[Rfam]
RNA sequence: UGGCGCUCACUGCCUGUAACAGCAACUCCAUGUGGAAGCUCCUCCUUCCAGUGGAAGUGCUGCUACCUGCAGGGGGCGC
Numbered sequence: 001u002g003g004c005g006c007u008c009a010c011u012g013c014c015u016g017u018a019a020c021a022g023c024a025a026c027u028c029c030a031u032g033u034g035g036a037a038g039c040u041c042c043u044c045c046u047u048c049c050a051g052u053g054g055a056a057g058u059g060c061u062g063c064u065a066c067c068u069g070c071a072g073g074g075g076g077c078g079c
Base pairs, nucleotide, nucleotide: 010072011071012070016066017065018064020062021061022060023059027055028054029053030052031051033050034049035048

A member of the RNA family "mir-194 microRNA precursor family" from Gadus morhua, 79 nucleotides long. For this family Rfam cites "Reduced accumulation of specific microRNAs in colorectal neoplasia" (Michael et al., Mol Cancer Res, 2003). The family has 46 seed sequences and 936 matches in Rfam 15.1. Gene Ontology terms of the family: miRNA-mediated post-transcriptional gene silencing and RISC complex.